[Rfam]
A member of the RNA family "Burkholderia RNA 7 (anti-hemB)" from Janthinobacterium sp. 17J80-10, 96 nucleotides long. The literature on the family includes a 2017 paper in Sci Rep by Sass et al., "Identification of small RNAs abundant in Burkholderia cenocepacia biofilms reveal putative regulators with a potential role in carbon and iron metabolism". The family's RNA type in Rfam is small RNA.
RNA sequence: CCUCCCGCUUCUCCUCCCUGAGCGGGGCCUAUCGUGGCAUAAGCGAUAAGGCGUUCGUGCCCUGAAGAUACUCCCCUUUCUUCAGGGCUUUUUUUU
Numbered sequence: 001c002c003u004c005c006c007g008c009u010u011c012u013c014c015u016c017c018c019u020g021a022g023c024g025g026g027g028c029c030u031a032u033c034g035u036g037g038c039a040u041a042a043g044c045g046a047u048a049a050g051g052c053g054u055u056c057g058u059g060c061c062c063u064g065a066a067g068a069u070a071c072u073c074c075c076c077u078u079u080c081u082u083c084a085g086g087g088c089u090u091u092u093u094u095u096u
Base pairs, nucleotide, nucleotide: 004026005025006024007023008022009021027052028051029050030049032046033045034044059088060087061086062085063084064083065082066081067080068079